Notes:
This 88-nucleotide RNA from Cavia porcellus belongs to the Rfam family "mir-7 microRNA precursor family". Its family is annotated with RISC complex and miRNA-mediated post-transcriptional gene silencing in the Gene Ontology. For this family Rfam cites "Identification of novel genes coding for small expressed RNAs" (Lagos-Quintana et al., Science, 2001).
RNA sequence: UGGCCAGUCCUGUCUGGAAGACUAGUGAUUUUGUUGUUGUCUCACUGUGCCCAACAACAAGUCCCAGUCUGCCGCACAGUGCUGGCCU
Numbered sequence: 001u002g003g004c005c006a007g008u009c010c011u012g013u014c015u016g017g018a019a020g021a022c023u024a025g026u027g028a029u030u031u032u033g034u035u036g037u038u039g040u041c042u043c044a045c046u047g048u049g050c051c052c053a054a055c056a057a058c059a060a061g062u063c064c065c066a067g068u069c070u071g072c073c074g075c076a077c078a079g080u081g082c083u084g085g086c087c088u
Base pairs, nucleotide, nucleotide: 002087003086004085005084006083007082008081010079011078012077013076015074016073017072019070020069021068022067023066025065027063028062029061030060031059033058034057035056036055037054038053
From the family's description: This family represents the microRNA (miRNA) precursor mir-7.